[Rfam]
RNA sequence: GAAGGAAGGCCCUUCGGAGUCACCAUGCAGGUGGAGACUUCAAACCACCCUAAGCUGCUGUGGGCAAAAGCCAUGGUGGUGAGCGUUAGGGGGAAAGUCGGGGCAGAGACCCCGGCAGGU
Numbered sequence: 001g002a003a004g005g006a007a008g009g010c011c012c013u014u015c016g017g018a019g020u021c022a023c024c025a026u027g028c029a030g031g032u033g034g035a036g037a038c039u040u041c042a043a044a045c046c047a048c049c050c051u052a053a054g055c056u057g058c059u060g061u062g063g064g065c066a067a068a069a070g071c072c073a074u075g076g077u078g079g080u081g082a083g084c085g086u087u088a089g090g091g092g093g094a095a096a097g098u099c100g101g102g103g104c105a106g107a108g109a110c111c112c113c114g115g116c117a118g119g120u
Stems, first nucleotide, its partner, number of pairs: 001015005016041006023034004046119001048091006054080002057077003061073003097116006
RNA: Group II catalytic intron D1-D4-2